[Rfam]
RNA sequence: CCUGCAAAACGUUCUAUCGCUGUGCCAACGUAGUUGGUGAGAGGAAAGUCCGGGCAACACAGAGCAUCCUGCUUCCUAACGGGAAGGCGUCCGUUAGCUAACGGACGACAGCAAGUGCCACAGAGAAUAUACCGCCGCAUUUGCCCUUUGGCACGUGGGGUAAGGGUGAAAACGUGAGGUAAGAGCUCACGGCUUUUCCGGGCGACCGGGAUCGCGGUAAACCUCAGGAGUUGAAAAACCAAAUAGGUUCUGAAAGCGGUGCUGCUCGCAUCCAUGUCCGGCAACGGAAUGUCAGAAUGGGUAGGUUGAUAGAUCCUGUCGGCAACGGCAGGGCCAGAUUAAUGAUAGAAGCUCCUUUUCUGGAGUACAAAACCCGGCUUACAGAUUUGCUGCUAUU
Number, nucleotide and partner (000 for none) at each position: 001c000002c392003u000004g390005c389006a388007a387008a386009a000010c384011g382012u350013u349014c348015u347016a346017u345018c344019g000020c041021u040022g000023u000024g000025c037026c036027a035028a034029c033030g000031u000032a000033g029034u028035u027036g026037g025038u000039g000040a021041g020042a000043g000044g000045a000046a380047a379048g378049u000050c377051c376052g375053g374054g373055c233056a232057a231058c230059a000060c000061a000062g000063a000064g282065c281066a000067u229068c228069c227070u226071g225072c086073u085074u084075c083076c082077u000078a000079a000080c000081g000082g076083g075084a074085a073086g072087g109088c107089g106090u105091c104092c103093g102094u101095u100096a000097g000098c000099u000100a095101a094102c093103g092104g091105a090106c089107g088108a000109c087110a224111g223112c000113a000114a000115g222116u221117g218118c217119c216120a000121c000122a000123g000124a000125g000126a000127a000128u000129a000130u000131a000132c165133c164134g161135c160136c159137g000138c157139a156140u155141u000142u153143g152144c151145c150146c000147u000148u000149u000150g145151g144152c143153a142154c000155g140156u139157g138158g000159g136160g135161u134162a000163a000164g133165g132166g000167u000168g000169a000170a000171a000172a000173c191174g190175u189176g188177a187178g186179g000180u000181a000182a000183g000184a000185g000186c178187u177188c176189a175190c174191g173192g000193c000194u000195u000196u211197u210198c209199c208200g207201g206202g000203c000204g000205a000206c201207c200208g199209g198210g197211a196212u000213c000214g000215c000216g119217g118218u117219a000220a000221a116222c115223c111224u110225c071226a070227g069228g068229a067230g058231u057232u056233g055234a000235a000236a000237a307238a306239c305240c304241a000242a000243a000244u000245a000246g000247g298248u297249u296250c295251u294252g293253a000254a000255a000256g000257c000258g000259g000260u000261g000262c000263u000264g000265c000266u000267c000268g000269c000270a000271u000272c000273c000274a000275u000276g000277u288278c287279c286280g000281g065282c064283a000284a000285c000286g279287g278288a277289a000290u000291g000292u000293c252294a251295g250296a249297a248298u247299g000300g000301g000302u000303a000304g240305g239306u238307u237308g000309a000310u000311a000312g000313a000314u333315c332316c331317u330318g329319u328320c327321g326322g000323c000324a000325a000326c321327g320328g319329c318330a317331g316332g315333g314334c000335c000336a000337g000338a000339u000340u000341a000342a000343u000344g018345a017346u016347a015348g014349a013350a012351g000352c000353u000354c000355c000356u000357u000358u000359u000360c000361u000362g000363g000364a000365g000366u000367a000368c000369a000370a000371a000372a000373c054374c053375c052376g051377g050378c048379u047380u046381a000382c011383a000384g010385a000386u008387u007388u006389g005390c004391u000392g002393c000394u000395a000396u000397u000
Shown here is a 397-nucleotide sequence from Mucilaginibacter terrigena, a member of the family "Bacterial RNase P class A". The source organism's lineage runs through Bacteria, Pseudomonadati, Sphingobacteriales, Sphingobacteriaceae and Mucilaginibacter. The literature on the family includes a 1998 paper in Annu Rev Biochem by Frank and Pace, "Ribonuclease P: unity and diversity in a tRNA processing ribozyme".